[Rfam]
RNA sequence: ACGGGUGUAGCUCAGCUGGUAGAGCAGUGGUCUCCAAAACCAAAGGUCGAGGGUUCGAUCCCUUCCGCCCGUG
Numbered sequence: 001a002c003g004g005g006u007g008u009a010g011c012u013c014a015g016c017u018g019g020u021a022g023a024g025c026a027g028u029g030g031u032c033u034c035c036a037a038a039a040c041c042a043a044a045g046g047u048c049g050a051g052g053g054u055u056c057g058a059u060c061c062c063u064u065c066c067g068c069c070c071g072u073g
Base pairs, nucleotide, nucleotide: 001072002071003070004069005068006067007066010025011024012023013022028042029041030040031039049065050064051063052062053061

Background
tRNA: a 73-nucleotide sequence from Balneicella halophila. Rfam classes the family as a transfer RNA. Lineage of the source: Bacteria > Pseudomonadati > Bacteroidota > Balneicellaceae > Balneicella. Pairs were carried over by alignment from the consensus structure, which is taken from published work.